This 143-nucleotide sequence from Attibartonella tamiae belongs to the Rfam family "Alphaproteobacterial sRNA ar45".
[Rfam]
RNA sequence: GCCCAAAGUCGCACGUGCCUGUGGAUGUACGCCGAUCCUCUAAUGGUGAGGGAUUCGGUAAGGUACCUGGUAGUGAUUCUAGUCAUUCUUACGACCAAUCGUAAGAGUGAGAACAUCCUGAAGCAACGACGGUGCGGGCCUUU
Numbered sequence: 001g002c003c004c005a006a007a008g009u010c011g012c013a014c015g016u017g018c019c020u021g022u023g024g025a026u027g028u029a030c031g032c033c034g035a036u037c038c039u040c041u042a043a044u045g046g047u048g049a050g051g052g053a054u055u056c057g058g059u060a061a062g063g064u065a066c067c068u069g070g071u072a073g074u075g076a077u078u079c080u081a082g083u084c085a086u087u088c089u090u091a092c093g094a095c096c097a098a099u100c101g102u103a104a105g106a107g108u109g110a111g112a113a114c115a116u117c118c119u120g121a122a123g124c125a126a127c128g129a130c131g132g133u134g135c136g137g138g139c140c141u142u143u
Stems, first nucleotide, its partner, number of pairs: 001139004008130004016125003023118006030111001031059005037051004067082004083110004089104006
On this family, see del Val et al., RNA Biol 2012: "A survey of sRNA families in alpha-proteobacteria".